[Rfam]
A member of the RNA family "TPP riboswitch aptamer (THI element)" from Actinacidiphila alni, 142 nucleotides long.

RNA sequence: ACAUUCCGACAGGGGAGCGCCUGCGACGGCGCUGAGAGUGCGGCCCAUGGAGACCCGGGGAAUCCCGGGGACCUCCACGAGACCGCAGACCCUCGGACCUGAUCCGGGUCAUACCGGCGUAGGGAGUCUGCAUCAUGAACAC
Numbered sequence: 001a002c003a004u005u006c007c008g009a010c011a012g013g014g015g016a017g018c019g020c021c022u023g024c025g026a027c028g029g030c031g032c033u034g035a036g037a038g039u040g041c042g043g044c045c046c047a048u049g050g051a052g053a054c055c056c057g058g059g060g061a062a063u064c065c066c067g068g069g070g071a072c073c074u075c076c077a078c079g080a081g082a083c084c085g086c087a088g089a090c091c092c093u094c095g096g097a098c099c100u101g102a103u104c105c106g107g108g109u110c111a112u113a114c115c116g117g118c119g120u121a122g123g124g125a126g127u128c129u130g131c132a133u134c135a136u137g138a139a140c141a142c
Stems, first nucleotide, its partner, number of pairs: 006130001008128003011093004017032005039087005098123004104117004
The family's consensus secondary structure is taken from published work.